[Rfam]
Nucleotides: 207
Stems, first nucleotide, its partner, number of pairs: 009190003015186004
Number, partner (000 for none) and nucleotide at each position: 001000u002000c003000c004000c005000c006000c007000a008000c009190a010189g011188u012000c013000c014000u015186c016185c017184g018183g019000u020000c021000c022000u023000c024000g025000u026000u027000u028000c029000u030000c031000g032000c033000a034000a035000g036000g037000g038000a039000u040000c041000c042000u043000a044000u045000u046000g047000u048000a049000g050000g051000c052000a053000c054000u055000c056000g057000c058000a059000u060000c061000a062000u063000u064000u065000g066000g067000u068000u069000a070000c071000c072000c073000u074000u075000c076000c077000a078000u079000a080000u081000g082000c083000c084000g085000c086000u087000c088000u089000c090000g091000a092000g093000c094000c095000u096000g097000u098000a099000a100000c101000a102000g103000g104000a105000c106000c107000u108000c109000g110000u111000g112000a113000a114000u115000g116000c117000c118000g119000c120000a121000g122000c123000c124000g125000g126000a127000u128000u129000a130000u131000g132000g133000u134000g135000g136000g137000u138000a139000g140000c141000g142000c143000g144000u145000c146000c147000u148000g149000u150000a151000u152000a153000g154000g155000a156000u157000g158000u159000a160000c161000c162000a163000a164000g165000c166000g167000g168000g169000c170000g171000g172000g173000u174000g175000a176000a177000c178000g179000a180000g181000g182000c183018u184017c185016g186015g187000a188011a189010c190009u191000u192000a193000a194000c195000c196000c197000u198000a199000a200000g201000a202000a203000u204000a205000u206000a207000u
Ascomycota telomerase RNA: a 207-nucleotide part of an RNA from Fusarium agapanthi. A reference for the family is Qi et al. (2013), "The common ancestral core of vertebrate and fungal telomerase RNAs", Nucleic Acids Res. The family is grouped with related families in Rfam's "Telomerase clan". The organism belongs to Fusarium fujikuroi species complex, within Eukaryota. The base pairs follow the family's consensus structure.